[Rfam]
RNA sequence: CGAGUCGGCUGGGCGGUCGCGUCGGGCGGCACCACAUUCCUCGGAGUGUGGAGGCUGCCCGCCGAGGAACGUCCGGGCUCCACACGGCAGGGUGGUGGGUAACGCCCACCCGGGGUGACCCGCGGGACAGUGCCACAGAAAACAGACCGCCGAGGGCCGUCAGGCGCUCGGUAAGGGUGAAACGGUGGUGUAAGAGACCACCAGCGUCCGGGGUGACCCGGACGGCUAGGUAAACCCCACCCGGAGCAAGGUCAAGAGGAACCGCCGACUGGCGGUUCUGCGCGAACGCCUGAGGGCUGCCCGCCCGAGUUCGCGGGUAGACCGCACGAGGCUGUCGGCAACGGCAGCCCUAGAUGGAUGGCCGCCUCCCCCGCGCGCCGUAAGGCCACGGGGAGACAGAACCCGGCGUAUAUGGCCGACUCGUCCG
Numbered sequence: 001c002g003a004g005u006c007g008g009c010u011g012g013g014c015g016g017u018c019g020c021g022u023c024g025g026g027c028g029g030c031a032c033c034a035c036a037u038u039c040c041u042c043g044g045a046g047u048g049u050g051g052a053g054g055c056u057g058c059c060c061g062c063c064g065a066g067g068a069a070c071g072u073c074c075g076g077g078c079u080c081c082a083c084a085c086g087g088c089a090g091g092g093u094g095g096u097g098g099g100u101a102a103c104g105c106c107c108a109c110c111c112g113g114g115g116u117g118a119c120c121c122g123c124g125g126g127a128c129a130g131u132g133c134c135a136c137a138g139a140a141a142a143c144a145g146a147c148c149g150c151c152g153a154g155g156g157c158c159g160u161c162a163g164g165c166g167c168u169c170g171g172u173a174a175g176g177g178u179g180a181a182a183c184g185g186u187g188g189u190g191u192a193a194g195a196g197a198c199c200a201c202c203a204g205c206g207u208c209c210g211g212g213g214u215g216a217c218c219c220g221g222a223c224g225g226c227u228a229g230g231u232a233a234a235c236c237c238c239a240c241c242c243g244g245a246g247c248a249a250g251g252u253c254a255a256g257a258g259g260a261a262c263c264g265c266c267g268a269c270u271g272g273c274g275g276u277u278c279u280g281c282g283c284g285a286a287c288g289c290c291u292g293a294g295g296g297c298u299g300c301c302c303g304c305c306c307g308a309g310u311u312c313g314c315g316g317g318u319a320g321a322c323c324g325c326a327c328g329a330g331g332c333u334g335u336c337g338g339c340a341a342c343g344g345c346a347g348c349c350c351u352a353g354a355u356g357g358a359u360g361g362c363c364g365c366c367u368c369c370c371c372c373g374c375g376c377g378c379c380g381u382a383a384g385g386c387c388a389c390g391g392g393g394a395g396a397c398a399g400a401a402c403c404c405g406g407c408g409u410a411u412a413u414g415g416c417c418g419a420c421u422c423g424u425c426c427g
Stems, first nucleotide, its partner, number of pairs: 001423010011411001012366007020064002023061008069409003073406005078246004086301003090242005095109005110124001111122004125237002130235002132231003147176002149172006156165002184202006204226001205224008250323004282314006294306004330349008

Bacterial RNase P class A: a 427-nucleotide RNA from Streptomyces buecherae. The family's RNA type in Rfam is ribozyme. Rfam links the family to the GO terms ribonuclease P activity, dimeric ribonuclease P complex and tRNA processing. Ribonuclease P (RNase P) is a ubiquitous endoribonuclease, found in archaea, bacteria and eukarya as well as chloroplasts and mitochondria.